[Rfam]
RNA sequence: ACGCAUCUUCAGGGCAGGGUGAAAUUCCCGAUCGGCGGUACAGUCCGCUAGCCUCGCGAGCGAUCGAGGGGCCGAACCGGUGAGAUUCCGGUACCGACAGUCAUAGUCUGGAUGGAAGAAGUUUGCG
Numbered sequence: 001a002c003g004c005a006u007c008u009u010c011a012g013g014g015c016a017g018g019g020u021g022a023a024a025u026u027c028c029c030g031a032u033c034g035g036c037g038g039u040a041c042a043g044u045c046c047g048c049u050a051g052c053c054u055c056g057c058g059a060g061c062g063a064u065c066g067a068g069g070g071g072c073c074g075a076a077c078c079g080g081u082g083a084g085a086u087u088c089c090g091g092u093a094c095c096g097a098c099a100g101u102c103a104u105a106g107u108c109u110g111g112a113u114g115g116a117a118g119a120a121g122u123u124u125g126c127g
Stems, first nucleotide, its partner, number of pairs: 005123001007121004017029003031107002033096002035048004043094002051072003076092005098110003
This 127-nucleotide RNA sequence from Bifidobacterium callitrichos belongs to the Rfam family "FMN riboswitch aptamer (RFN element)". Rfam links the family to the GO term FMN binding.